[Rfam]
Shown here is a 197-nucleotide sequence from Clostridium pasteurianum, a member of the family "T-box leader". The family's RNA type in Rfam is cis-regulatory leader. Taxonomically the source falls in Clostridium pasteurianum (Bacteria, Bacillati, Bacillota, Eubacteriales).

Nucleotides: 197
Base pairs, nucleotide, nucleotide: 007099008098015094016093017092018091026083027082028081029080037073038072039071048070049069050068051067052066053065102119103118104117105116106115107114108113120130121129122128146157147156148155149154162194163193164192165191173190174189175188176187177186
Number, partner (000 for none) and nucleotide at each position: 001000u002000a003000u004000u005000u006000u007099g008098c009000c010000u011000u012000g013000a014000a015094c016093a017092a018091g019000a020000a021000u022000a023000g024000u025000a026083a027082u028081a029080u030000u031000g032000a033000a034000c035000u036000c037073a038072u039071c040000u041000a042000a043000a044000g045000a046000g047000a048070g049069c050068u051067g052066u053065u054000g055000a056000u057000u058000g059000c060000u061000g062000c063000a064000a065053a066052a067051c068050a069049g070048u071039g072038a073037u074000g075000a076000u077000u078000a079000u080029a081028u082027a083026u084000g085000a086000a087000c088000u089000c090000g091018c092017u093016u094015g095000g096000g097000a098008g099007c100000a101000u102119u103118a104117c105116u106115a107114c108113u109000a110000a111000a112000a113108a114107g115106u116105a117104g118103u119102a120130c121129g122128g123000u124000u125000a126000a127000u128122c129121c130120g131000u132000u133000a134000u135000a136000u137000u138000a139000u140000a141000a142000a143000g144000u145000g146157a147156g148155g149154u150000u151000c152000u153000u154149a155148c156147c157146u158000a159000a160000g161000u162194a163193g164192a165191g166000u167000g168000g169000u170000a171000c172000c173190a174189c175188g176187g177186a178000g179000u180000u181000u182000a183000a184000c185000c186177u187176u188175c189174g190173u191165c192164u193163c194162u195000u196000u197000u